The family of this 163-nucleotide RNA from Rotaria sordida is "U1 spliceosomal RNA".
It is annotated as a spliceosomal small nuclear RNA.
The source organism's lineage runs through Eukaryota, Protostomia, Eurotatoria, Bdelloidea and Rotaria.
It scores 96 bits against the family's covariance model.
A reference for the family is Zwieb (1997), "The uRNA database", Nucleic Acids Res.
U1 is a small nuclear RNA (snRNA) component of the spliceosome (involved in pre-mRNA splicing).
RNA sequence: AUACUUACCUGCCACGGAUGCAUUAACGAUCAGUAACGUUAAUGCUCCAGGUUGAGGCGCGGGCAUUGCACAUUGCUCCCGUUGACGCCUGCGAAAAGUCCACAUCGGACUUUCUCGAGUGGAGAAUUUGUUCCGCGGUCAUUUGCGUUCGCGCAUUGGCCAU
Numbered sequence: 001a002u003a004c005u006u007a008c009c010u011g012c013c014a015c016g017g018a019u020g021c022a023u024u025a026a027c028g029a030u031c032a033g034u035a036a037c038g039u040u041a042a043u044g045c046u047c048c049a050g051g052u053u054g055a056g057g058c059g060c061g062g063g064c065a066u067u068g069c070a071c072a073u074u075g076c077u078c079c080c081g082u083u084g085a086c087g088c089c090u091g092c093g094a095a096a097a098g099u100c101c102a103c104a105u106c107g108g109a110c111u112u113u114c115u116c117g118a119g120u121g122g123a124g125a126a127u128u129u130g131u132u133c134c135g136c137g138g139u140c141a142u143u144u145g146c147g148u149u150c151g152c153g154c155a156u157u158g159g160c161c162a163u
Stems, first nucleotide, its partner, number of pairs: 012122004016048003023042005049090004054086001056083003061079002063076002092117003095113003099109002137161004144155004